Source information: Rfam assigns this 85-nucleotide sequence from Artemisia annua to the family "Plastid-psbM 3UTR RNA". Plastid psbM is a non-coding RNA (ncRNA) recognised in plastids. The family's RNA type in Rfam is cis-regulatory element.
RNA sequence: CUUCUGAGAGUAUGGUAAGUAAGAAAGAAAUUUCUUACUUACCAUACUCUCUAUUAGUGUUAUAGUAGUAACUUAAAUAGGUUUU
Numbered sequence: 001c002u003u004c005u006g007a008g009a010g011u012a013u014g015g016u017a018a019g020u021a022a023g024a025a026a027g028a029a030a031u032u033u034c035u036u037a038c039u040u041a042c043c044a045u046a047c048u049c050u051c052u053a054u055u056a057g058u059g060u061u062a063u064a065g066u067a068g069u070a071a072c073u074u075a076a077a078u079a080g081g082u083u084u085u
Stems, first nucleotide, its partner, number of pairs: 006051012019038008